Description
Rfam assigns this 126-nucleotide RNA sequence from Carya illinoinensis to the family "MIR398 microRNA precursor family". Its family is annotated with miRNA-mediated post-transcriptional gene silencing and RISC complex in the Gene Ontology. A search with the family's covariance model found it, with a score of 63 bits.

RNA sequence: AUGAGUCUUACAGGGGCAACAUGAGAUCACAUGCAUGUGGGCAUUCUUAUUAUUCACAUGACACCCUUUCUGCUUGUGUUCAUGUGACCAGUAAAUGUGUUCUCAGGUCGCCCCUGCAGGACUUCC
Dot-bracket structure: ......((..((((.((.(...((((.(((((..............................................................))))).))))...).)).))))..))......